[Rfam]
RNA sequence: CGCACUUGCGACGGGGCAAACCUAACAAAGCGGAACACCUACCGCGAAAGAAGUGCAGAUUGCGAAAGAAGCGCAAUCGCUACAUUGCGUCGCUUGUCAGGGGACUUUUAUCGGAUGUUAAUUGCUCAAUGUAAAAAAAUAGGCCAGCGUGCAGCAGUCUAUGGCAAACAAAUGGGUGGCGGUCGGCUAAUGGUAGCGCAUUGGCCGGCUUGU
Numbered sequence: 001c002g003c004a005c006u007u008g009c010g011a012c013g014g015g016g017c018a019a020a021c022c023u024a025a026c027a028a029a030g031c032g033g034a035a036c037a038c039c040u041a042c043c044g045c046g047a048a049a050g051a052a053g054u055g056c057a058g059a060u061u062g063c064g065a066a067a068g069a070a071g072c073g074c075a076a077u078c079g080c081u082a083c084a085u086u087g088c089g090u091c092g093c094u095u096g097u098c099a100g101g102g103g104a105c106u107u108u109u110a111u112c113g114g115a116u117g118u119u120a121a122u123u124g125c126u127c128a129a130u131g132u133a134a135a136a137a138a139a140u141a142g143g144c145c146a147g148c149g150u151g152c153a154g155c156a157g158u159c160u161a162u163g164g165c166a167a168a169c170a171a172a173u174g175g176g177u178g179g180c181g182g183u184c185g186g187c188u189a190a191u192g193g194u195a196g197c198g199c200a201u202u203g204g205c206c207g208g209c210u211u212g213u
Stems, first nucleotide, its partner, number of pairs: 002056006030045004038175002058159006071090007078198006091149004096144003181210012

The record is a 213-nucleotide RNA sequence from Caproiciproducens sp. NJN-50, which matches "FuFi-1 RNA" in Rfam. The organism belongs to Caproiciproducens, within Bacteria. The match comes from Rfam's covariance-model search (77 bits). By type it is a small RNA.